[Rfam]
RNA sequence: UUGUUAAGUGAUGAUGUGGCAAACAGAGUGUCAUAUCAUCAUGCCUUGUCACAGACACCCCAUUGCCAUGUCAUUACCUUCAAUGACAUGGUAAUGAUGUGUCAGUGAUUGGGCGUGAUGAUGUGACACUCCAUUUGUCAUGUCAUCACUUAACAUAA
Dot-bracket structure: .((((((((((((((((((((((..(((((((((((((((((((((.(((((.(((((...........(((((........)))))...........))))).))))).)))))))))))))))))))))..))))))))))))))))))))))...
Numbered sequence: 001u002u003g004u005u006a007a008g009u010g011a012u013g014a015u016g017u018g019g020c021a022a023a024c025a026g027a028g029u030g031u032c033a034u035a036u037c038a039u040c041a042u043g044c045c046u047u048g049u050c051a052c053a054g055a056c057a058c059c060c061c062a063u064u065g066c067c068a069u070g071u072c073a074u075u076a077c078c079u080u081c082a083a084u085g086a087c088a089u090g091g092u093a094a095u096g097a098u099g100u101g102u103c104a105g106u107g108a109u110u111g112g113g114c115g116u117g118a119u120g121a122u123g124u125g126a127c128a129c130u131c132c133a134u135u136u137g138u139c140a141u142g143u144c145a146u147c148a149c150u151u152a153a154c155a156u157a158a
Stems, first nucleotide, its partner, number of pairs: 002155022026131021048109005054103005070087005
Rfam assigns this 158-nucleotide sequence from Glycine max to the family "MIR4371 microRNA precursor family". The organism belongs to Glycine subgen. Soja, within Eukaryota. Clan: MIR4387 microRNA precursor clan. Rfam links the family to the GO terms RISC complex and miRNA-mediated post-transcriptional gene silencing.